The record is a 224-nucleotide RNA sequence, which matches "Cyano-2 RNA" in Rfam. By type it is a small RNA.

[Rfam]
RNA sequence: AGCAGCACCGAAAGAGGCGACUGGGGAGCUGGCAGAAACCAGUCCCUAAGGCCUCAGAAGACUCCUUAGGGACUGUUUUUGCGCCUUCAUAUCGUCUUCCACUAACAAGAAAGAUUCCGUAGUCUGCAGCUUAAAUCGAGAUCAUUAGUCAGGCUUGGAAUGCGGAGUCGAAUCGCUCGGGAAACGUCGGCGCGACCGUUGUCUCUCUCGGCUCCGCGGUCAGU
Numbered sequence: 001a002g003c004a005g006c007a008c009c010g011a012a013a014g015a016g017g018c019g020a021c022u023g024g025g026g027a028g029c030u031g032g033c034a035g036a037a038a039c040c041a042g043u044c045c046c047u048a049a050g051g052c053c054u055c056a057g058a059a060g061a062c063u064c065c066u067u068a069g070g071g072a073c074u075g076u077u078u079u080u081g082c083g084c085c086u087u088c089a090u091a092u093c094g095u096c097u098u099c100c101a102c103u104a105a106c107a108a109g110a111a112a113g114a115u116u117c118c119g120u121a122g123u124c125u126g127c128a129g130c131u132u133a134a135a136u137c138g139a140g141a142u143c144a145u146u147a148g149u150c151a152g153g154c155u156u157g158g159a160a161u162g163c164g165g166a167g168u169c170g171a172a173u174c175g176c177u178c179g180g181g182a183a184a185c186g187u188c189g190g191c192g193c194g195a196c197c198g199u200u201g202u203c204u205c206u207c208u209c210g211g212c213u214c215c216g217c218g219g220u221c222a223g224u
Base pairs, nucleotide, nucleotide: 003031004030005029006028008025009024011022032088034086035085036080037079038078041074042073043072044071045070046069047068048067049066050065051064162217163216164215165214166213167212168211169210170209171208179207180206181205182204184202185201186200